[Rfam]
RNA sequence: AAAAUCCUGUCAAAUAAGCGGCUAACCACAGCAUUUGAAGUGAGUCUUGGGUGUGUCGCAGUAAUGCGGCGUGUUAAGCGUAGACAGCAAGGUAGUGGGGAUAGCUAUUGAACAUCGAAAUACCAACAAACCAGAGCGUCGACUCUGUUGCCUGAGGAGAAGACAACAUGUGGGUUUAUCGUUAAGGUGAGAUUUCACACAGUUCUGCGGUGUCGGAAGGAA
Numbered sequence: 001a002a003a004a005u006c007c008u009g010u011c012a013a014a015u016a017a018g019c020g021g022c023u024a025a026c027c028a029c030a031g032c033a034u035u036u037g038a039a040g041u042g043a044g045u046c047u048u049g050g051g052u053g054u055g056u057c058g059c060a061g062u063a064a065u066g067c068g069g070c071g072u073g074u075u076a077a078g079c080g081u082a083g084a085c086a087g088c089a090a091g092g093u094a095g096u097g098g099g100g101a102u103a104g105c106u107a108u109u110g111a112a113c114a115u116c117g118a119a120a121u122a123c124c125a126a127c128a129a130a131c132c133a134g135a136g137c138g139u140c141g142a143c144u145c146u147g148u149u150g151c152c153u154g155a156g157g158a159g160a161a162g163a164c165a166a167c168a169u170g171u172g173g174g175u176u177u178a179u180c181g182u183u184a185a186g187g188u189g190a191g192a193u194u195u196c197a198c199a200c201a202g203u204u205c206u207g208c209g210g211u212g213u214c215g216g217a218a219g220g221a222a
Stems, first nucleotide, its partner, number of pairs: 010038005018032002021029001023190001025188002040088002044085004048080002050075011109216001110214001112213006132207006138164003143159004169201004174196001178193003
Dot-bracket structure: .........(((((...((.(.[.[[..).)).))))).((..(((((((((((((((((....)))))))))))...)).)))).))....................((.((((((..............(((((((((..((((.........))))..)))....((((.(...(((......]].])))..).))))))))))))))))).)......
Group II catalytic intron D1-D4-6: a 222-nucleotide RNA. From the family's description: Group II introns are found in rRNA, tRNA and mRNA of organelles in fungi, plants and protists, and also in mRNA in bacteria. It is one of the family's seed sequences. The base pairs follow the family's consensus structure. Its family is annotated with Group II intron splicing in the Gene Ontology.